[Rfam]
RNA sequence: CCCUGCAUUUGAAAGUGAUCGUGGGUUCCUCGUGCCCUGGUCAUUGAUAGUGCAGGGAGAGCAAUUGCUGAAAGCAUUUCCCGGUGUUUGGAGGGUCCACCCUUGUCCCUUGCAAACCCUGGAGCUUUCACACA
Numbered sequence: 001c002c003c004u005g006c007a008u009u010u011g012a013a014a015g016u017g018a019u020c021g022u023g024g025g026u027u028c029c030u031c032g033u034g035c036c037c038u039g040g041u042c043a044u045u046g047a048u049a050g051u052g053c054a055g056g057g058a059g060a061g062c063a064a065u066u067g068c069u070g071a072a073a074g075c076a077u078u079u080c081c082c083g084g085u086g087u088u089u090g091g092a093g094g095g096u097c098c099a100c101c102c103u104u105g106u107c108c109c110u111u112g113c114a115a116a117c118c119c120u121g122g123a124g125c126u127u128u129c130a131c132a133c134a
Stems, first nucleotide, its partner, number of pairs: 001057009014045008023037004067131001069130007086117005091111005

This 134-nucleotide RNA from Molossus molossus belongs to the Rfam family "Small nucleolar RNA SNORA71".
Rfam describes the family as follows. The members of this family belong to the H/ACA class of snoRNAs which bind a number of proteins (including dyskerin, Gar1p and Nop10p) to form snoRNP complexes. This class of snoRNAs are thought to guide the sites of modification of uridines to pseudouridines by forming direct base pairing interactions with substrate RNAs. This family includes U71 (SNORA71), ACA39 (SNORA39) and ACA60 (SNORA60). U71 and ACA60 are predicted to guide the pseudouridylation of U406 and U1004 in 18S rRNA respectively. There is currently no target RNA identified for ACA39.
NCBI's taxonomy places the organism under Eukaryota, Sarcopterygii, Amniota, Laurasiatheria, Molossus.
On this family, see Ganot et al., Genes Dev 1997: "The family of box ACA small nucleolar RNAs is defined by an evolutionarily conserved secondary structure and ubiquitous sequence elements essential for RNA accumulation".
The match comes from Rfam's covariance-model search (149 bits).
Gene Ontology terms of the family: nucleolus and RNA processing.